[Rfam]
RNA sequence: AUUUCUACUUUAACAAUAGUUCUGACCUUUGAGUAAAAUUUGGUAAGUUCUAUUUGUUGGCGUAGUAUUA
Numbered sequence: 001a002u003u004u005c006u007a008c009u010u011u012a013a014c015a016a017u018a019g020u021u022c023u024g025a026c027c028u029u030u031g032a033g034u035a036a037a038a039u040u041u042g043g044u045a046a047g048u049u050c051u052a053u054u055u056g057u058u059g060g061c062g063u064a065g066u067a068u069u070a
Stems, first nucleotide, its partner, number of pairs: 005065004010060002013057004018051002022047002025044003

Shown here is a 70-nucleotide RNA from Astyanax mexicanus, a member of the family "miR-430 microRNA precursor family". Its Rfam clan is "mir-290 clan". A reference for the family is Giraldez et al. (2005), "MicroRNAs regulate brain morphogenesis in zebrafish", Science.